Description
The record is a 116-nucleotide RNA sequence from Nephila pilipes, which matches "U5 spliceosomal RNA" in Rfam. NCBI's taxonomy places the organism under Eukaryota, Ecdysozoa, Arthropoda, Araneoidea, Nephila.

[Rfam]
RNA sequence: AAGCUCUGGUUUCUCUUCAAUGUCGUGCUAAUCUUUCGCCUUUUACUAAAGAUUACCGUGGAGAGGAACAACUUAAUGAGCCUCAACUAAUUUUUGGACCCCAUUUCGGUGGGGUA
Dot-bracket structure: ..((((..(((((((((((.........((((((((...........))))))))...)))))))))))........))))................((((((......)))))).